[Rfam]
RNA sequence: CAGAUACUUUUUGGGGUAAGGGCUUCCUGGCUACAGGUUCAAGGAACAGCAAGCCCAGACCGCAAAAAGAUCCG
Numbered sequence: 001c002a003g004a005u006a007c008u009u010u011u012u013g014g015g016g017u018a019a020g021g022g023c024u025u026c027c028u029g030g031c032u033a034c035a036g037g038u039u040c041a042a043g044g045a046a047c048a049g050c051a052a053g054c055c056c057a058g059a060c061c062g063c064a065a066a067a068a069g070a071u072c073c074g
Stems, first nucleotide, its partner, number of pairs: 007069007015061003020056004025051001027049002
A member of the RNA family "mir-129 microRNA precursor family" from Megalops atlanticus, 74 nucleotides long. Taxonomically the source falls in Megalops (Eukaryota, Actinopterygii, Neopterygii, Elopocephala). Gene Ontology terms of the family: miRNA-mediated post-transcriptional gene silencing, RISC complex and synapse. It scores 49 bits against the family's covariance model. Rfam 15.1 lists 1,242 matches to the family in 559 species. The family's consensus secondary structure was predicted with RNAalifold. On this family, see Lagos-Quintana et al., Curr Biol 2002: "Identification of tissue-specific microRNAs from mouse".